Small nucleolar RNA SNORD56: a 71-nucleotide RNA from Panthera leo.
For this family Rfam cites "Purified box C/D snoRNPs are able to reproduce site-specific 2'-O-methylation of target RNA in vitro" (Galardi et al., Mol Cell Biol, 2002).
Pairs were carried over by alignment from the consensus structure, which was predicted with PFOLD.
Taxonomically the source falls in Panthera (Eukaryota, Gnathostomata, Amniota, Pantherinae).
[Rfam]
RNA sequence: CUGCAAUGACGGCACUAUUACUGGUCAACAGCAGUUCACCUCCUGCUUGUUGAUCCUUUGGGUCUGAGUGA
Numbered sequence: 001c002u003g004c005a006a007u008g009a010c011g012g013c014a015c016u017a018u019u020a021c022u023g024g025u026c027a028a029c030a031g032c033a034g035u036u037c038a039c040c041u042c043c044u045g046c047u048u049g050u051u052g053a054u055c056c057u058u059u060g061g062g063u064c065u066g067a068g069u070g071a
Stems, first nucleotide, its partner, number of pairs: 002070003008026003